RNA sequence: UGACGGGGACCCGCACAAGCGGUGGAUGAUGUGGAUUAAUUCGAUGCAACGCGAAAAACCUUACCUACCCUUGACAUGCCACUAACGAAGUAGAGAUACAUUAGGUGCCCGUAAGGGAAAGUGGACACAGGUGCUGCAUGGCUGUCGUCAGCUCGUGUCGUGAGAUGUUGGGUUAAGUCCCGCAACGAGCGCAACCCUUGUCUCUAGUUGCUACGCAAGAGCACUCUAGAGAGACUGCCGGUGACAAACCGGAGGAAGGUGGGGAUGACGUCAAGUCCUCAUGGCCCUUAUGGGUAGGGCUUCACACGUCAUACAAUGGUGCAUACAGAGGGUUGCCAACCCGCGAGGGGGAGCUAAUCUCAGAAAAUGCAUCGUAGUCCGGAUCGUAGUCUGCAACUCGACUACGUGAAGCUGGAAUCGCUAGUAAUCGCGGAUCAGAAUGUCGCGGUGAAUACGUUCCCGGGUCUUGUACACACCGCCCGUCACACCAUGGGAGUGGGUUUUGCCAGAAGCCGUUAGCCUAACCGCAAGGAGGGCGACGACCACGGCAGGGUUCAUGACUGGGGUGAAGUCGUAACAAGG
Dot-bracket structure: (((((.(((((((.((..((((((.((((((((((....((((........))))........(((((((......(((((((...((.(((....))).))...(.((......)).)))))).))..((.((((..((((((.((...(((((((((....)))..((((......))))..)))))).....((((.(((((((...((.......))....)))))))..((.(((((.....))))).)).....))))....)).).)))...))))))))....)))))))...)).)))))))).)...(((((((.....(((..((...(((....)))...))....))).....)))))))......(....(((((((........)))))))....).....))))).....(((((((.........)))))))......))...)))))))))).))..(.(..((...((((.(((..((((((((((((....(.((((.((((..((....)).)))))))).)...))))))))))))..))).))))....))...)..).
Numbered sequence: 001u002g003a004c005g006g007g008g009a010c011c012c013g014c015a016c017a018a019g020c021g022g023u024g025g026a027u028g029a030u031g032u033g034g035a036u037u038a039a040u041u042c043g044a045u046g047c048a049a050c051g052c053g054a055a056a057a058a059c060c061u062u063a064c065c066u067a068c069c070c071u072u073g074a075c076a077u078g079c080c081a082c083u084a085a086c087g088a089a090g091u092a093g094a095g096a097u098a099c100a101u102u103a104g105g106u107g108c109c110c111g112u113a114a115g116g117g118a119a120a121g122u123g124g125a126c127a128c129a130g131g132u133g134c135u136g137c138a139u140g141g142c143u144g145u146c147g148u149c150a151g152c153u154c155g156u157g158u159c160g161u162g163a164g165a166u167g168u169u170g171g172g173u174u175a176a177g178u179c180c181c182g183c184a185a186c187g188a189g190c191g192c193a194a195c196c197c198u199u200g201u202c203u204c205u206a207g208u209u210g211c212u213a214c215g216c217a218a219g220a221g222c223a224c225u226c227u228a229g230a231g232a233g234a235c236u237g238c239c240g241g242u243g244a245c246a247a248a249c250c251g252g253a254g255g256a257a258g259g260u261g262g263g264g265a266u267g268a269c270g271u272c273a274a275g276u277c278c279u280c281a282u283g284g285c286c287c288u289u290a291u292g293g294g295u296a297g298g299g300c301u302u303c304a305c306a307c308g309u310c311a312u313a314c315a316a317u318g319g320u321g322c323a324u325a326c327a328g329a330g331g332g333u334u335g336c337c338a339a340c341c342c343g344c345g346a347g348g349g350g351g352a353g354c355u356a357a358u359c360u361c362a363g364a365a366a367a368u369g370c371a372u373c374g375u376a377g378u379c380c381g382g383a384u385c386g387u388a389g390u391c392u393g394c395a396a397c398u399c400g401a402c403u404a405c406g407u408g409a410a411g412c413u414g415g416a417a418u419c420g421c422u423a424g425u426a427a428u429c430g431c432g433g434a435u436c437a438g439a440a441u442g443u444c445g446c447g448g449u450g451a452a453u454a455c456g457u458u459c460c461c462g463g464g465u466c467u468u469g470u471a472c473a474c475a476c477c478g479c480c481c482g483u484c485a486c487a488c489c490a491u492g493g494g495a496g497u498g499g500g501u502u503u504u505g506c507c508a509g510a511a512g513c514c515g516u517u518a519g520c521c522u523a524a525c526c527g528c529a530a531g532g533a534g535g536g537c538g539a540c541g542a543c544c545a546c547g548g549c550a551g552g553g554u555u556c557a558u559g560a561c562u563g564g565g566g567u568g569a570a571g572u573c574g575u576a577a578c579a580a581g582g
Stems, first nucleotide, its partner, number of pairs: 001473002003470003007467007015457002019421005024314001026312008034303002040055004064298007077127002079124005087102002090099003106119001108117002130287002133285004139281002141276003144272001146270002151190006157166003169182004196264004201232007211221002235255002238252005318373007330361003335354002340349003380411001385406007427449007476581001478578001481574002486568004491563003496558012512543001514541004519537004525532002